[Rfam]
Rfam assigns this 103-nucleotide RNA sequence from Callorhinchus milii to the family "mir-454 microRNA precursor family".
NCBI's taxonomy places the organism under Eukaryota, Bilateria, Vertebrata, Chimaeriformes, Callorhinchus.
Pairs were carried over by alignment from the consensus structure, which was predicted with RNAalifold.
A reference for the family is Chen et al. (2005), "The developmental miRNA profiles of zebrafish as determined by small RNA cloning", Genes Dev.
RNA sequence: GCGGGUUACCCCGGCAGCUGAAACCCUAUCUAUAUUGCGUCUGCUUUGAAUUUCUGCCUUAAGUAGUGCAAUAUCGCUUAUAGGGUUUUGGCCCCGGGUUCGA
Numbered sequence: 001g002c003g004g005g006u007u008a009c010c011c012c013g014g015c016a017g018c019u020g021a022a023a024c025c026c027u028a029u030c031u032a033u034a035u036u037g038c039g040u041c042u043g044c045u046u047u048g049a050a051u052u053u054c055u056g057c058c059u060u061a062a063g064u065a066g067u068g069c070a071a072u073a074u075c076g077c078u079u080a081u082a083g084g085g086u087u088u089u090g091g092c093c094c095c096g097g098g099u100u101c102g103a
Stems, first nucleotide, its partner, number of pairs: 020089010030076001032074007041066005